A member of the RNA family "Mason-Pfizer monkey virus packaging signal" from Callithrix jacchus, 278 nucleotides long. The match comes from Rfam's covariance-model search (117 bits). A reference for the family is Harrison et al. (1995), "Secondary structure model of the Mason-Pfizer monkey virus 5' leader sequence: identification of a structural motif common to a variety of retroviruses", J Virol.
RNA sequence: UGGCGCCCAAACGCGGUGCUCGAGUACGAGGGGGGUACAGUGAGGGACGCCUUUGAGGUCAGCCGGCACAGAAGGAUUAAGAAACCGGGAGGAACGAGCGUCCUGGGAGCCUGCCAGGGACUCGCGCUCCGGUAAGCAGACGGCGAAUAUGGGACAGGAAAUCAGCCAGCAUGAGUUGUUUAUAGAGAGUUUAAGUAAGGCUUUAAAGGCGCGAGGAGUAAAGGUGAAAAUAAAACAAUUGUGUAAAUAUUUUGACUAUAUCCAGGAUGUCUGCCCUU
Numbered sequence: 001u002g003g004c005g006c007c008c009a010a011a012c013g014c015g016g017u018g019c020u021c022g023a024g025u026a027c028g029a030g031g032g033g034g035g036u037a038c039a040g041u042g043a044g045g046g047a048c049g050c051c052u053u054u055g056a057g058g059u060c061a062g063c064c065g066g067c068a069c070a071g072a073a074g075g076a077u078u079a080a081g082a083a084a085c086c087g088g089g090a091g092g093a094a095c096g097a098g099c100g101u102c103c104u105g106g107g108a109g110c111c112u113g114c115c116a117g118g119g120a121c122u123c124g125c126g127c128u129c130c131g132g133u134a135a136g137c138a139g140a141c142g143g144c145g146a147a148u149a150u151g152g153g154a155c156a157g158g159a160a161a162u163c164a165g166c167c168a169g170c171a172u173g174a175g176u177u178g179u180u181u182a183u184a185g186a187g188a189g190u191u192u193a194a195g196u197a198a199g200g201c202u203u204u205a206a207a208g209g210c211g212c213g214a215g216g217a218g219u220a221a222a223g224g225u226g227a228a229a230a231u232a233a234a235a236c237a238a239u240u241g242u243g244u245a246a247a248u249a250u251u252u253u254g255a256c257u258a259u260a261u262c263c264a265g266g267a268u269g270u271c272u273g274c275c276c277u278u
Base pairs, nucleotide, nucleotide: 006033007032008031013027015025040048041047090128091127096123097122098121102118103117104116105115106114137157139155144151145150162205164203165201166200167199212254213253214252215251216250218248219247222240223239225237226236264277265276266275268273
It is annotated as a cis-regulatory element.